[Rfam]
RNA: Streptomyces RNA 5676
Organism: Streptomyces montanisoli
RNA sequence: AGAUGAGAGAAACACCCCGCUCGCGGGAGACCGCGGGCGACUCCGGCUCGGAGCGUCCCCAGCUCCGUUCCGGGCGUGCCUCCGCGCACGCCACCGGGGCCGCGGGUCCCGGAUCUCCUCACCGGUCGGA
Numbered sequence: 001a002g003a004u005g006a007g008a009g010a011a012a013c014a015c016c017c018c019g020c021u022c023g024c025g026g027g028a029g030a031c032c033g034c035g036g037g038c039g040a041c042u043c044c045g046g047c048u049c050g051g052a053g054c055g056u057c058c059c060c061a062g063c064u065c066c067g068u069u070c071c072g073g074g075c076g077u078g079c080c081u082c083c084g085c086g087c088a089c090g091c092c093a094c095c096g097g098g099g100c101c102g103c104g105g106g107u108c109c110c111g112g113a114u115c116u117c118c119u120c121a122c123c124g125g126u127c128g129g130a
Base pairs, nucleotide, nucleotide: 004121005120006119007118009117010116018039019038020037021036022035023034024033025032026031042074043073044072045071046070049067050066051065052064053063054062076089077088078087079086094112095111096110097109098108099107100106101105122129123128